[Rfam]
RNA sequence: GCCGGGGAGCCAAUAGCACAAAAAAGACUGAGCCGGCGGUGCAAACCGCGCAGCCGGCACAG
Numbered sequence: 001g002c003c004g005g006g007g008a009g010c011c012a013a014u015a016g017c018a019c020a021a022a023a024a025a026g027a028c029u030g031a032g033c034c035g036g037c038g039g040u041g042c043a044a045a046c047c048g049c050g051c052a053g054c055c056g057g058c059a060c061a062g
Stems, first nucleotide, its partner, number of pairs: 032058006039051004
DnaX ribosomal frameshifting element: a 62-nucleotide RNA from Tatumella morbirosei. It is annotated as a frameshift element. This family represents a ribosomal frameshifting element found in the mRNA of the dnaX gene in E. coli. The dnaX gene has two encoded products tau and gamma which are produced in a 1:1 ratio. Its family is annotated with translational frameshifting in the Gene Ontology. Lineage of the source: Bacteria > Gammaproteobacteria > Enterobacterales > Erwiniaceae > Tatumella. The family's consensus secondary structure is taken from published work. It scores 36 bits against the family's covariance model.